Fluoride riboswitch aptamer (crcB RNA motif): a 62-nucleotide sequence from Desulfosoma caldarium. NCBI's taxonomy places the organism under Bacteria, Pseudomonadati, Syntrophobacteria, Syntrophobacterales, Desulfosoma. It scores 46 bits against the family's covariance model. Pairs were carried over by alignment from the consensus structure, which is taken from published work.
RNA sequence: AUUGAUUUAGGUGAUGAGGCUCACCCUGAACCGCCAUGCUGGCUGAUAGCCUCUACGGAGAA
Numbered sequence: 001a002u003u004g005a006u007u008u009a010g011g012u013g014a015u016g017a018g019g020c021u022c023a024c025c026c027u028g029a030a031c032c033g034c035c036a037u038g039c040u041g042g043c044u045g046a047u048a049g050c051c052u053c054u055a056c057g058g059a060g061a062a
Base pairs, nucleotide, nucleotide: 010025011024012023013022016053017052018051019050020049021048033043034042035041